RNA sequence: AAGAAUGCCAAGCAUGUGAAUAGUAGGUAAUAGUAUUCCUUUAGAGAGUCGGUGGGUGGUGUAAACCGAUAGAAGCUGUUACUGAAUCCGCACAUGAAGCAAACAAUGAAAACAAGUCAUCUUGAUUAAAUUGUUUCGGGUCCCCCGUUAUCGUCUAAAGUGUGGAUACACGUGUAUCCGAAGCUGGGUGGUACCGCGAACGUUAAGUCAUUUCGUCCCAAUA
Dot-bracket structure: ......((......((((.......((((((.....((.........((((((...........)))))).))....)))))).......))))....)).((((((......................)))))).(((.....)))...............(((((((....)))))))....((((.......(((((...........)))))))))...
The record is a 223-nucleotide sequence from Jeotgalibaca porci, which matches "T-box leader" in Rfam. Rfam 15.1 lists 19,395 matches to the family in 1,923 species. It scores 119 bits against the family's covariance model. The family's RNA type in Rfam is cis-regulatory leader.